[Rfam]
Shown here is a 46-nucleotide sequence, a member of the family "Histone 3' UTR stem-loop". From the family's description: The mRNAs of metazoan histone genes lack a poly-A tail. 3' end processing occurs at a site between a highly conserved stem-loop (modelled by this family) and a purine rich region around 20 nts downstream (the histone downstream element, or HDE). The stem-loop is bound by a 31 kDa stem-loop binding protein (SLBP - also termed the histone hairpin binding protein, or HBP). Together with U7 snRNA binding of the HDE, SLBP binding nucleate s the formation of the processing complex. On this family, see Williams and Marzluff, Nucleic Acids Res 1995: "The sequence of the stem and flanking sequences at the 3' end of histone mRNA are critical determinants for the binding of the stem-loop binding protein". Rfam's curators put it in the seed alignment.
Nucleotides: 046
Base pairs, nucleotide, nucleotide: 006021007020008019009018010017011016
Number, partner (000 for none) and nucleotide at each position: 001000c002000a003000a004000a005000a006021g007020g008019c009018c010017c011016u012000u013000u014000u015000c016011a017010g018009g019008g020007c021006c022000c023000c024000c025000a026000a027000a028000c029000u030000g031000u032000c033000a034000c035000a036000g037000a038000a039000a040000g041000a042000g043000c044000u045000g046000u